[Rfam]
RNA sequence: CGUUGAGGUGAUGAGAAUUUAAUCGGAAUCAUAACAUGUCGAUUCAACAAAUCAGACUACAAUUAUCUGAUCAACG
Numbered sequence: 001c002g003u004u005g006a007g008g009u010g011a012u013g014a015g016a017a018u019u020u021a022a023u024c025g026g027a028a029u030c031a032u033a034a035c036a037u038g039u040c041g042a043u044u045c046a047a048c049a050a051a052u053c054a055g056a057c058u059a060c061a062a063u064u065a066u067c068u069g070a071u072c073a074a075c076g
Base pairs, nucleotide, nucleotide: 001076002075003074004073005072006071
Shown here is a 76-nucleotide RNA from Papaver nudicaule, a member of the family "Small nucleolar RNA Z155". Gene Ontology terms of the family: nucleolus and RNA processing. The organism belongs to Papaver, within Eukaryota. The base pairs follow the family's consensus structure.